[Rfam]
RNA sequence: ACAUUCGAUGGGAAUGGGGUCUCCCGAAACCGCCGAAAGGCUGAUGACUCCUACUGCGUA
Numbered sequence: 001a002c003a004u005u006c007g008a009u010g011g012g013a014a015u016g017g018g019g020u021c022u023c024c025c026g027a028a029a030c031c032g033c034c035g036a037a038a039g040g041c042u043g044a045u046g047a048c049u050c051c052u053a054c055u056g057c058g059u060a
Stems, first nucleotide, its partner, number of pairs: 010025004016051006032041003